[Rfam]
RNA sequence: GCCGACGCACUGCGCCCGGCCGCAGUCCCGGGCGGGGCUUUCUUCGUCUGCCACAGAAACAUUCCAGGGCGCUGUGACCGCCUUGACCGGUCAAGGGCGCUGCCACUGCCCGGGGACACGGUU
Numbered sequence: 001g002c003c004g005a006c007g008c009a010c011u012g013c014g015c016c017c018g019g020c021c022g023c024a025g026u027c028c029c030g031g032g033c034g035g036g037g038c039u040u041u042c043u044u045c046g047u048c049u050g051c052c053a054c055a056g057a058a059a060c061a062u063u064c065c066a067g068g069g070c071g072c073u074g075u076g077a078c079c080g081c082c083u084u085g086a087c088c089g090g091u092c093a094a095g096g097g098c099g100c101u102g103c104c105a106c107u108g109c110c111c112g113g114g115g116a117c118a119c120g121g122u123u
Base pairs, nucleotide, nucleotide: 001051002050004048005047006046012038013037015036016035017034018033020031021030022029063114064113065112067110068109071106074103075102076101079099080098081097082096083095
RNA: Small nucleolar RNA SNORA77
Organism: Myotis brandtii